[Rfam]
RNA: tRNA
RNA sequence: GCCCGGAUAGCUCAGUCGGUAGAGCAUUGGACUUUUAAUCCAAGGGUCCAGGGUUCAAGUCCCUGUUCGGGCG
Numbered sequence: 001g002c003c004c005g006g007a008u009a010g011c012u013c014a015g016u017c018g019g020u021a022g023a024g025c026a027u028u029g030g031a032c033u034u035u036u037a038a039u040c041c042a043a044g045g046g047u048c049c050a051g052g053g054u055u056c057a058a059g060u061c062c063c064u065g066u067u068c069g070g071g072c073g
Stems, first nucleotide, its partner, number of pairs: 001072007010025004027043005049065005